[Rfam]
RNA sequence: UCUAGCUCAGGUGAUGGAUUUCCACCUUUAACCGCUCAAUUAAUGAGAUAAUGAUUCCUACUAUAAC
Numbered sequence: 001u002c003u004a005g006c007u008c009a010g011g012u013g014a015u016g017g018a019u020u021u022c023c024a025c026c027u028u029u030a031a032c033c034g035c036u037c038a039a040u041u042a043a044u045g046a047g048a049u050a051a052u053g054a055u056u057c058c059u060a061c062u063a064u065a066a067c
Stems, first nucleotide, its partner, number of pairs: 010026004016058003020054002035047003

The family of this 67-nucleotide sequence from Vibrio genomosp. F6 is "Fluoride riboswitch aptamer (crcB RNA motif)". The match comes from Rfam's covariance-model search (53 bits). The family's consensus secondary structure is taken from published work. On this family, see Baker et al., Science 2012: "Widespread genetic switches and toxicity resistance proteins for fluoride".